[Rfam]
RNA sequence: UCGAAGCUCCAUCUACAAAUGGAUAAGACCCGAUCUUAGUGUAUAGGAGUUAUUGAAAAAAAAAAAAAAUAAAGGAGCAAUAAACUCUUUCUUGUUCUAUCAAGAGGGCGUUAUUGCUCCUUUAUU
Numbered sequence: 001u002c003g004a005a006g007c008u009c010c011a012u013c014u015a016c017a018a019a020u021g022g023a024u025a026a027g028a029c030c031c032g033a034u035c036u037u038a039g040u041g042u043a044u045a046g047g048a049g050u051u052a053u054u055g056a057a058a059a060a061a062a063a064a065a066a067a068a069a070u071a072a073a074g075g076a077g078c079a080a081u082a083a084a085c086u087c088u089u090u091c092u093u094g095u096u097c098u099a100u101c102a103a104g105a106g107g108g109c110g111u112u113a114u115u116g117c118u119c120c121u122u123u124a125u126u
Stems, first nucleotide, its partner, number of pairs: 008023005071123013086108002089106005